[Rfam]
RNA: Bacterial small signal recognition particle RNA
RNA sequence: ACAGACCCCUCGUGCGACGUCAUCUCGCUGAACUCCCCCAGGGCCGGAAGGCAGCAAGGGCAGGUGAGCUCUGGCGGGUGUGCGAGGGGUCCUUUUC
Dot-bracket structure: ...((((((((((((..(((((.((((((.....(((.....(((....))).....)))..))))))...))))).)..)))))))))))......